[Rfam]
RNA sequence: UGUCCGAUGCCACGUCGAAGGUAGCUCUUGGGCUAUGAUCCUAGCUCGACGCUAUAUUGGACAUAAACAAAUGUUCGUGUUUCGCUUACUGAUAGGAACCUGUGGAUCUUGUUUUACGAUCUACAGAGCCAUGGCGAUUACAUUU
Numbered sequence: 001u002g003u004c005c006g007a008u009g010c011c012a013c014g015u016c017g018a019a020g021g022u023a024g025c026u027c028u029u030g031g032g033c034u035a036u037g038a039u040c041c042u043a044g045c046u047c048g049a050c051g052c053u054a055u056a057u058u059g060g061a062c063a064u065a066a067a068c069a070a071a072u073g074u075u076c077g078u079g080u081u082u083c084g085c086u087u088a089c090u091g092a093u094a095g096g097a098a099c100c101u102g103u104g105g106a107u108c109u110u111g112u113u114u115u116a117c118g119a120u121c122u123a124c125a126g127a128g129c130c131a132u133g134g135c136g137a138u139u140a141c142a143u144u145u
Base pairs, nucleotide, nucleotide: 002062003061004060005059006058007057008056009055013051014050015049016048017047018046020040021039022038024033025032026031082137083136084135085134086133095130096129100126101125102124104122105121106120107119108118
A member of the RNA family "Small nucleolar RNA snoR2/U65" from Arabidopsis lyrata, 145 nucleotides long.
Gene Ontology terms of the family: RNA processing and nucleolus.
A search with the family's covariance model found it, with a score of 124 bits.
Lineage of the source: Eukaryota > Streptophytina > Pentapetalae > Brassicaceae > Arabidopsis lyrata.
A reference for the family is Shaw et al. (1998), "Localization and processing from a polycistronic precursor of novel snoRNAs in maize", J Cell Sci.